[Rfam]
RNA sequence: AAUAAGAUCUAAAUGAUGAGAUACUAAUGCAACAUAGAGUCAAGCUCAGAGUACAAAAAAGUUACAGGGACGAGAAUUGCUAUUCAUUUCUGAUGAUUUUAAU
Numbered sequence: 001a002a003u004a005a006g007a008u009c010u011a012a013a014u015g016a017u018g019a020g021a022u023a024c025u026a027a028u029g030c031a032a033c034a035u036a037g038a039g040u041c042a043a044g045c046u047c048a049g050a051g052u053a054c055a056a057a058a059a060a061g062u063u064a065c066a067g068g069g070a071c072g073a074g075a076a077u078u079g080c081u082a083u084u085c086a087u088u089u090c091u092g093a094u095g096a097u098u099u100u101a102a103u
Base pairs, nucleotide, nucleotide: 001103003101004100005099006098
Shown here is a 103-nucleotide RNA from Waltiozyma mucosa, a member of the family "Small nucleolar RNA snR66". The organism belongs to Waltiozyma, within Eukaryota. The pairing is the family consensus, mapped onto this sequence. The match comes from Rfam's covariance-model search (82 bits). The literature on the family includes a 1999 paper in Science by Lowe and Eddy, "A computational screen for methylation guide snoRNAs in yeast".